[Rfam]
RNA sequence: UUCAGCUACGGUGACAUGGUUCCGAAAACGAUUGCGGGGAAAGUCGUCGGGGGUGUAUGCUCCUUGAGCGGCGUCCUAGUGAUCGCUUUACCGGUACCUGUAAUCGUCAGCAAC
Numbered sequence: 001u002u003c004a005g006c007u008a009c010g011g012u013g014a015c016a017u018g019g020u021u022c023c024g025a026a027a028a029c030g031a032u033u034g035c036g037g038g039g040a041a042a043g044u045c046g047u048c049g050g051g052g053g054u055g056u057a058u059g060c061u062c063c064u065u066g067a068g069c070g071g072c073g074u075c076c077u078a079g080u081g082a083u084c085g086c087u088u089u090a091c092c093g094g095u096a097c098c099u100g101u102a103a104u105c106g107u108c109a110g111c112a113a114c
Stems, first nucleotide, its partner, number of pairs: 002113001008107004014101003018097001021094001037077004049063003
RNA: Potassium channel RNA editing signal
Organism: Temnothorax curvispinosus